[Rfam]
RNA sequence: CGCGUUAGCUGUAGAGAUGCACGGCUAAUCGUGUCUUUUGAACGCAUCUCACUUGGAGAUAAACAUGGCAUUAACUGUUGCCCAAAAACAAGCCAUUAUGGCUAAAUUUGCUCGUGGCGAA
Numbered sequence: 001c002g003c004g005u006u007a008g009c010u011g012u013a014g015a016g017a018u019g020c021a022c023g024g025c026u027a028a029u030c031g032u033g034u035c036u037u038u039u040g041a042a043c044g045c046a047u048c049u050c051a052c053u054u055g056g057a058g059a060u061a062a063a064c065a066u067g068g069c070a071u072u073a074a075c076u077g078u079u080g081c082c083c084a085a086a087a088a089c090a091a092g093c094c095a096u097u098a099u100g101g102c103u104a105a106a107u108u109u110g111c112u113c114g115u116g117g118c119g120a121a
Stems, first nucleotide, its partner, number of pairs: 007026006053074004058069001